[Rfam]
RNA sequence: GGGCUUACCAUCGCGCGCGGUAUCCCCUAUAUUGGCGAUGUCUUCGGACUAUGGCGAUAAACGCGCGUGUAAUAAGCGGCUCGGACCCGGGGGCGGUACCCGGCGGCUCCACCAAAAGCAGAUCAGCAAUGGUCUGUUUCUGACGGGGCCGAAAUAGUGUCGACGGACGUGUAAAGACGAGGCUUUCGCUCGCUUGAGCUGCGUUAGAAGCUCAAAAGCAAAUAGUUGCAAAUGACAACUUUGCUGAGGGCGAAUUGCUCGCCGCGUAAGCGGUGACGGUUUUUCCGACCUAAGUCCUGGGGCUUCAGACCCCUAGGCGGGGCCCGGGGGCGCCUGGCAACAGAAGCCCCCACC
Dot-bracket structure: .......................................(((....)))...(((((.....((.(((........((..(((...(((((.......)))))(((((((..................................)))))))............))).)).......)))..))..)))))[[[.((((((]]].....)))))).........................................................................................................[[[[..((((((]]]]..........))))))...

The record is a 354-nucleotide sequence from Hyphomonas neptunium, which matches "Alphaproteobacteria transfer-messenger RNA" in Rfam. Rfam's curators write: Bacterial tmRNA, also known as 10Sa RNA or SsrA, is named for its dual tRNA and mRNA-like properties. Its role is to liberate the mRNA from a stalled ribosome. To accomplish this part of the tmRNA is used as a reading frame that ends in a translation stop signal. The family's consensus secondary structure is taken from published work. Rfam's curators put it in the seed alignment. It is annotated as a non-coding RNA gene. Taxonomically the source falls in Hyphomonas neptunium (Bacteria, Pseudomonadota, Alphaproteobacteria, Hyphomonas).